[Rfam]
RNA sequence: AAUUUAUGCAAAGCGCCAGGGCUUGGGGUUUUCCAAGUCGACGAGGACUGGGGUUUAUCGAAUUUUUCGGCGGAUGCCCCACGGCAGCCUGCUGCCGAUAAAGGCCUUACAAAACCGGGAAGCGAUUCCCGGGACAAAAUAGGCCGGGCAGGGGAAA
Numbered sequence: 001a002a003u004u005u006a007u008g009c010a011a012a013g014c015g016c017c018a019g020g021g022c023u024u025g026g027g028g029u030u031u032u033c034c035a036a037g038u039c040g041a042c043g044a045g046g047a048c049u050g051g052g053g054u055u056u057a058u059c060g061a062a063u064u065u066u067u068c069g070g071c072g073g074a075u076g077c078c079c080c081a082c083g084g085c086a087g088c089c090u091g092c093u094g095c096c097g098a099u100a101a102a103g104g105c106c107u108u109a110c111a112a113a114a115c116c117g118g119g120a121a122g123c124g125a126u127u128c129c130c131g132g133g134a135c136a137a138a139a140u141a142g143g144c145c146g147g148g149c150a151g152g153g154g155a156a157a
Stems, first nucleotide, its partner, number of pairs: 020039008049081005058070004082097006103145005115132007
glmS glucosamine-6-phosphate activated ribozyme aptamer: a 157-nucleotide sequence from Koleobacter methoxysyntrophicus.
About the family: This entry contains a glucosamine-6-phosphate activated ribozyme that is found in the mRNA for GlmS. GlmS is an enzyme that uses fructose-6-phosphate and glutamine to generate glucosamine-6-phosphate. The ribozyme catalyses self cleavage of the glmS mRNA that is thought to regulate GlmS activity.
The family's RNA type in Rfam is riboswitch.